A member of the RNA family "tRNA" from Prunus yedoensis, 73 nucleotides long. A search with the family's covariance model found it, with a score of 62 bits. The family's consensus secondary structure is taken from published work. Lineage of the source: Eukaryota > Spermatophyta > eudicotyledons > Pentapetalae > Prunus yedoensis.
RNA sequence: GCGCCUGUAGCUCAGUGGAUAGAGCGUUUGUUUCCUAAGCGAAAGGUCGUAGGUUCGACCCCUACCUGGCGCG
Numbered sequence: 001g002c003g004c005c006u007g008u009a010g011c012u013c014a015g016u017g018g019a020u021a022g023a024g025c026g027u028u029u030g031u032u033u034c035c036u037a038a039g040c041g042a043a044a045g046g047u048c049g050u051a052g053g054u055u056c057g058a059c060c061c062c063u064a065c066c067u068g069g070c071g072c073g
Stems, first nucleotide, its partner, number of pairs: 001072005007066001010025004027043005049065005